A member of the RNA family "Pseudomonas sRNA P31" from Pseudomonas aeruginosa, 79 nucleotides long. The organism belongs to Pseudomonas aeruginosa, within Bacteria. Pairs were carried over by alignment from the consensus structure, which was predicted with CMfinder.
RNA sequence: AGAAGACCUCCCGUAAAUCAAGCCUGACUGGUCGCGCAGGUGUAAAAAAGCGGGAUGACACCGUGAAGAGUCAUCCCGC
Number, nucleotide and partner (000 for none) at each position: 001a000002g000003a000004a000005g041006a000007c040008c039009u038010c000011c000012c000013g000014u000015a000016a000017a000018u000019c000020a000021a000022g033023c000024c031025u030026g000027a000028c000029u000030g025031g024032u000033c022034g000035c000036g000037c000038a009039g008040g007041u005042g000043u000044a000045a000046a000047a000048a000049a000050g079051c078052g077053g076054g000055a000056u073057g072058a071059c070060a000061c068062c000063g000064u000065g000066a000067a000068g061069a000070g059071u058072c057073a056074u000075c000076c053077c052078g051079c050